[Rfam]
RNA sequence: GAAAUAAAAUCAUAAUUCCCCUUAUCAAAGGAGACGAGCGACAUGGCGAAUACCACAAUGGGCGUAAAGCUU
Numbered sequence: 001g002a003a004a005u006a007a008a009a010u011c012a013u014a015a016u017u018c019c020c021c022u023u024a025u026c027a028a029a030g031g032a033g034a035c036g037a038g039c040g041a042c043a044u045g046g047c048g049a050a051u052a053c054c055a056c057a058a059u060g061g062g063c064g065u066a067a068a069g070c071u072u
Stems, first nucleotide, its partner, number of pairs: 001018003005014002030054002034051001038047002060072004
PutA 5' UTR thermometer: a 72-nucleotide sequence from Yersinia pestis.
Rfam classes the family as an RNA thermoregulator.
Pairs were carried over by alignment from the consensus structure.
On this family, see Righetti et al., Proc Natl Acad Sci U S A 2016: "Temperature-responsive in vitro RNA structurome of Yersinia pseudotuberculosis".
Rfam's curators put it in the seed alignment.
Position upstream of pepN gene responsible for amino acid processing.
Taxonomically the source falls in Yersinia pestis (Bacteria, Gammaproteobacteria, Yersinia, Yersinia pseudotuberculosis complex).
Its family is annotated with regulation of translation and response to temperature stimulus in the Gene Ontology.